The record is an 80-nucleotide RNA from Ornithorhynchus anatinus, which matches "mir-130 microRNA precursor family" in Rfam. For this family Rfam cites "Embryonic stem cell-specific MicroRNAs" (Houbaviy et al., Dev Cell, 2003). Lineage of the source: Eukaryota > Opisthokonta > Prototheria > Monotremata > Ornithorhynchus. Pairs were carried over by alignment from the consensus structure, which was predicted with PFOLD.
RNA sequence: CCCGGCCGAUGCCCUUUUUACAUUGCACUGCUAGUGACGGGCGCAGACAGUAGCACAAUGUGAAAAGAGCUCCGGCCGGG
Numbered sequence: 001c002c003c004g005g006c007c008g009a010u011g012c013c014c015u016u017u018u019u020a021c022a023u024u025g026c027a028c029u030g031c032u033a034g035u036g037a038c039g040g041g042c043g044c045a046g047a048c049a050g051u052a053g054c055a056c057a058a059u060g061u062g063a064a065a066a067g068a069g070c071u072c073c074g075g076c077c078g079g080g
Stems, first nucleotide, its partner, number of pairs: 002080001004077005011070002014067005021060005028053002